Shown here is a 66-nucleotide RNA from Cephalotus follicularis, a member of the family "Small nucleolar RNA U49". Taxonomically the source falls in Cephalotus (Eukaryota, Streptophyta, Pentapetalae, fabids). The literature on the family includes a 2001 paper in RNA by Brown et al., "Multiple snoRNA gene clusters from Arabidopsis". Gene Ontology terms of the family: RNA processing and nucleolus.
RNA sequence: UUCCAAUGAGGAAGCGAACCCAUUGAUAGGAAGUGCCGUAUGACACUUAAAAUCAGCAGCGGGCAC
Numbered sequence: 001u002u003c004c005a006a007u008g009a010g011g012a013a014g015c016g017a018a019c020c021c022a023u024u025g026a027u028a029g030g031a032a033g034u035g036c037c038g039u040a041u042g043a044c045a046c047u048u049a050a051a052a053u054c055a056g057c058a059g060c061g062g063g064c065a066c
Stems, first nucleotide, its partner, number of pairs: 014060002031048005